[Rfam]
RNA: MIR2617 microRNA precursor family
Organism: Medicago truncatula
RNA sequence: UUGCAAUGUAGCAUACCCGUUUGGUGAAAUCCUCUGAUGAUUAUUUGUUAUUUAAUUUGUUUUGGGUAACGGGGUGUUACAAUUUG
Numbered sequence: 001u002u003g004c005a006a007u008g009u010a011g012c013a014u015a016c017c018c019g020u021u022u023g024g025u026g027a028a029a030u031c032c033u034c035u036g037a038u039g040a041u042u043a044u045u046u047g048u049u050a051u052u053u054a055a056u057u058u059g060u061u062u063u064g065g066g067u068a069a070c071g072g073g074g075u076g077u078u079a080c081a082a083u084u085u086g
Stems, first nucleotide, its partner, number of pairs: 002086002005083001007081008016073006